RNA sequence: AUUUUAAGUGGGAAUGAUGAUCUCCCAGACUUUUAAGUCGAACUGCCUAAAGCUAAUGACGUCUACAACAAG
Numbered sequence: 001a002u003u004u005u006a007a008g009u010g011g012g013a014a015u016g017a018u019g020a021u022c023u024c025c026c027a028g029a030c031u032u033u034u035a036a037g038u039c040g041a042a043c044u045g046c047c048u049a050a051a052g053c054u055a056a057u058g059a060c061g062u063c064u065a066c067a068a069c070a071a072g
Stems, first nucleotide, its partner, number of pairs: 010026004016063004021058001045053002